About this RNA:
The family of this 84-nucleotide RNA sequence from Argiope bruennichi is "HDV ribozyme from F. prausnitzii". Gene Ontology term of the family: catalytic activity. For this family Rfam cites "Widespread occurrence of self-cleaving ribozymes" (Webb et al., Science, 2009).

[Rfam]
Nucleotides: 084
Stems, first nucleotide, its partner, number of pairs: 001038007019031003045070007
Number, partner (000 for none) and nucleotide at each position: 001038g002037g003036g004035g005034a006033a007032u008000g009000a010000g011000a012000g013000u014000a015000g016000c017000a018000c019031a020030c021029c022000u023000c024000c025000a026000c027000g028000u029021g030020g031019u032007a033006u034005u035004c036003c037002c038001u039000g040000g041000g042000c043000a044000a045070c046069g047068u048067c049066g050065c051064a052000u053000u054000u055000c056000u057000u058000u059000u060000g061000a062000a063000c064051u065050g066049c067048g068047a069046c070045g071000g072000c073000u074000a075000a076000g077000a078000u079000g080000c081000u082000a083000c084000u
Source information
A search with the family's covariance model found it, with a score of 51 bits.